Record summary: The record is a 70-nucleotide sequence from Cucumis melo, which matches "Small nucleolar RNA Z105" in Rfam.
RNA sequence: GCAUAGUGAUGAUGAUUUAAACGUGUCCGAUCAACUUAUGACUGGAAUAUCAACCUCCUACUCAUACUGA
Numbered sequence: 001g002c003a004u005a006g007u008g009a010u011g012a013u014g015a016u017u018u019a020a021a022c023g024u025g026u027c028c029g030a031u032c033a034a035c036u037u038a039u040g041a042c043u044g045g046a047a048u049a050u051c052a053a054c055c056u057c058c059u060a061c062u063c064a065u066a067c068u069g070a
Stems, first nucleotide, its partner, number of pairs: 006065004028045001031040001